RNA sequence: GGAUCGUCUUCAUCCACUACGGAUCGUCGGGCACGUACCUGCCCGUGGAAGGAAGUG
Numbered sequence: 001g002g003a004u005c006g007u008c009u010u011c012a013u014c015c016a017c018u019a020c021g022g023a024u025c026g027u028c029g030g031g032c033a034c035g036u037a038c039c040u041g042c043c044c045g046u047g048g049a050a051g052g053a054a055g056u057g
Stems, first nucleotide, its partner, number of pairs: 010052002013049004028045006
RNA: msiK RNA
Organism: Microlunatus soli